Rfam assigns this 329-nucleotide RNA sequence from Camelus ferus to the family "Nuclear RNase P". NCBI's taxonomy places the organism under Eukaryota, Deuterostomia, Gnathostomata, Teleostomi, Camelus. It is annotated as a ribozyme. From the family's description: Ribonuclease P (RNase P) is a ubiquitous endoribonuclease, found in archaea, bacteria and eukarya as well as chloroplasts and mitochondria.
RNA sequence: UUAGGGAAGCUCAUUGGUGGGGCCACGUGCUGAGUGUGAUUAGUCACUCUACUCUGUGUCCCUUGGAUAGGUCUGAGACUUGGGCCAGAAGCGGCCCUAACAGGGCUCUCCCUGAGCUUCGGGGAGGUGAGUUUCCAAAGAACGGGGCUCUGCGCGAGGGCAGACUGGACAGGAGAUGCUGUGGACCCCACCCUUCGGAGUGGCCUGGCGGAUGCCUCCUUAGCCGGAGCUUGGAACAGACUCACGGUCAGCGAAGUGAGUUCAAUGGCUGAGGUGAGGUACCAUGUACGUGGGCCUCAUAACCCAAUUCAGACUACUCUCCCUCCUAA
Numbered sequence: 001u002u003a004g005g006g007a008a009g010c011u012c013a014u015u016g017g018u019g020g021g022g023c024c025a026c027g028u029g030c031u032g033a034g035u036g037u038g039a040u041u042a043g044u045c046a047c048u049c050u051a052c053u054c055u056g057u058g059u060c061c062c063u064u065g066g067a068u069a070g071g072u073c074u075g076a077g078a079c080u081u082g083g084g085c086c087a088g089a090a091g092c093g094g095c096c097c098u099a100a101c102a103g104g105g106c107u108c109u110c111c112c113u114g115a116g117c118u119u120c121g122g123g124g125a126g127g128u129g130a131g132u133u134u135c136c137a138a139a140g141a142a143c144g145g146g147g148c149u150c151u152g153c154g155c156g157a158g159g160g161c162a163g164a165c166u167g168g169a170c171a172g173g174a175g176a177u178g179c180u181g182u183g184g185a186c187c188c189c190a191c192c193c194u195u196c197g198g199a200g201u202g203g204c205c206u207g208g209c210g211g212a213u214g215c216c217u218c219c220u221u222a223g224c225c226g227g228a229g230c231u232u233g234g235a236a237c238a239g240a241c242u243c244a245c246g247g248u249c250a251g252c253g254a255a256g257u258g259a260g261u262u263c264a265a266u267g268g269c270u271g272a273g274g275u276g277a278g279g280u281a282c283c284a285u286g287u288a289c290g291u292g293g294g295c296c297u298c299a300u301a302a303c304c305c306a307a308u309u310c311a312g313a314c315u316a317c318u319c320u321c322c323c324u325c326c327u328a329a
Base pairs, nucleotide, nucleotide: 001329002328003327004326005322006321007320010273011272012271013270015268019063020062021061022060032049033048034047035046036045037043073312074311075310076309077308083249084248085247086246093107094106095105096104097103108126109125110124111123112122113121127245128244129243130242131241132240133239147230148229149228150227151226152225274300275299276298277297278296279295280294